[Rfam]
RNA sequence: UUGCCCAAUGAUUAUAGCAAGACGCGUUAUUACGAGGACAAAUGCUGGAACUCUGCUUCCCCUCCUCCUCCUCCUCCUCCUUUUUCUUCCUUGUCCCUUUUCCACUUUCACUUUAACUCUCCAUUCUUGGGUGUCCAGUGUCCUGUGAGCAAGAUUAUGAGAUAUGAGGGCAA
Numbered sequence: 001u002u003g004c005c006c007a008a009u010g011a012u013u014a015u016a017g018c019a020a021g022a023c024g025c026g027u028u029a030u031u032a033c034g035a036g037g038a039c040a041a042a043u044g045c046u047g048g049a050a051c052u053c054u055g056c057u058u059c060c061c062c063u064c065c066u067c068c069u070c071c072u073c074c075u076c077c078u079c080c081u082u083u084u085u086c087u088u089c090c091u092u093g094u095c096c097c098u099u100u101u102c103c104a105c106u107u108u109c110a111c112u113u114u115a116a117c118u119c120u121c122c123a124u125u126c127u128u129g130g131g132u133g134u135c136c137a138g139u140g141u142c143c144u145g146u147g148a149g150c151a152a153g154a155u156u157a158u159g160a161g162a163u164a165u166g167a168g169g170g171c172a173a
Base pairs, nucleotide, nucleotide: 001173002172003171004170005169006168035087036086037085038084040082041081
RNA: Small nucleolar RNA SNORD97